Rfam assigns this 107-nucleotide sequence from Phaseolus vulgaris to the family "Small nucleolar RNA Z107/R87". Rfam links the family to the GO terms nucleolus and RNA processing. The family's RNA type in Rfam is C/D-box small nucleolar RNA. On this family, see Barneche et al., J Mol Biol 2001: "Identification of 66 box C/D snoRNAs in Arabidopsis thaliana: extensive gene duplications generated multiple isoforms predicting new ribosomal RNA 2'-O-methylation sites".

[Rfam]
RNA sequence: GUUCACGGUGAUGACCACAUAAAAUUCAAGCUCAACAGACCGGAAUGCACGGUUUUCUCUUUUGGAGAUUGCUUUGCGUGUCGAUUAUCCCGCUGAACUGAGUGAUC
Numbered sequence: 001g002u003u004c005a006c007g008g009u010g011a012u013g014a015c016c017a018c019a020u021a022a023a024a025u026u027c028a029a030g031c032u033c034a035a036c037a038g039a040c041c042g043g044a045a046u047g048c049a050c051g052g053u054u055u056u057c058u059c060u061u062u063u064g065g066a067g068a069u070u071g072c073u074u075u076g077c078g079u080g081u082c083g084a085u086u087a088u089c090c091c092g093c094u095g096a097a098c099u100g101a102g103u104g105a106u107c
Stems, first nucleotide, its partner, number of pairs: 001107001003105004